Rfam assigns this 101-nucleotide RNA sequence from Lupinus angustifolius to the family "MIR398 microRNA precursor family". The family has 14 seed sequences and 627 matches in Rfam 15.1. A search with the family's covariance model found it, with a score of 56 bits.
RNA sequence: AGGGGUUCUACAGGGUCGUACUGAGAACACAUGAAGAUUGCCGCGAGGUUUUAGAAUACCUCUCAGCUCACGUGUUCUCAGGUCGCCCCUGUUGUACUUUC
Dot-bracket structure: .......(..((((..((....((((((((.(.....................................).))))))))....))..))))..).......
Numbered sequence: 001a002g003g004g005g006u007u008c009u010a011c012a013g014g015g016u017c018g019u020a021c022u023g024a025g026a027a028c029a030c031a032u033g034a035a036g037a038u039u040g041c042c043g044c045g046a047g048g049u050u051u052u053a054g055a056a057u058a059c060c061u062c063u064c065a066g067c068u069c070a071c072g073u074g075u076u077c078u079c080a081g082g083u084c085g086c087c088c089c090u091g092u093u094g095u096a097c098u099u100u101c
Stems, first nucleotide, its partner, number of pairs: 008094001011091004017085002023079008032070001